[Rfam]
c-di-GMP-I riboswitch aptamer: a 93-nucleotide RNA sequence from Paenibacillus graminis.

RNA sequence: UAUUCCUAAAGGCAAACUGUCCCGAAAGGGCAGGACGCAAAGUCAUGGGCCUAAGAGCGCUAUUGCUGCAUUUAUGGUCGCCAGGCUGCCAAU
Numbered sequence: 001u002a003u004u005c006c007u008a009a010a011g012g013c014a015a016a017c018u019g020u021c022c023c024g025a026a027a028g029g030g031c032a033g034g035a036c037g038c039a040a041a042g043u044c045a046u047g048g049g050c051c052u053a054a055g056a057g058c059g060c061u062a063u064u065g066c067u068g069c070a071u072u073u074a075u076g077g078u079c080g081c082c083a084g085g086c087u088g089c090c091a092a093u
Stems, first nucleotide, its partner, number of pairs: 012038002017033004022029002041087004046083003049078003056072002059069001
Rfam links the family to the GO term cyclic-di-GMP binding.